The record is a 145-nucleotide RNA sequence from [Clostridium] symbiosum, which matches "RT-14 RNA" in Rfam. The family's RNA type in Rfam is small RNA. The match comes from Rfam's covariance-model search (54 bits).
Nucleotides: 145
Stems, first nucleotide, its partner, number of pairs: 004056006013049002020043001023040007077095007114145002117142003121138002129133001
Number, partner (000 for none) and nucleotide at each position: 001000u002000u003000u004056u005055c006054u007053c008052u009051c010000a011000u012000a013049g014048c015000c016000g017000g018000a019000u020043a021000u022000u023040c024039g025038g026037g027036g028035c029034u030000c031000a032000a033000g034029g035028g036027u037026c038025u039024c040023g041000u042000c043020u044000c045000a046000g047000a048014g049013c050000a051009g052008a053007g054006a055005g056004a057000c058000a059000a060000a061000a062000g063000g064000g065000a066000c067000u068000u069000g070000u071000c072000u073000c074000c075000g076000u077095g078094c079093c080092g081091a082090u083089c084000g085000g086000g087000a088000a089083g090082g091081u092080c093079g094078g095077c096000a097000a098000a099000a100000a101000a102000u103000a104000a105000a106000a107000a108000c109000c110000u111000c112000a113000u114145g115144g116000a117142a118141g119140c120000c121138g122137u123000u124000a125000g126000u127000a128000g129133c130000u131000c132000a133129g134000g135000g136000a137122a138121c139000a140119g141118c142117u143000c144115c145114c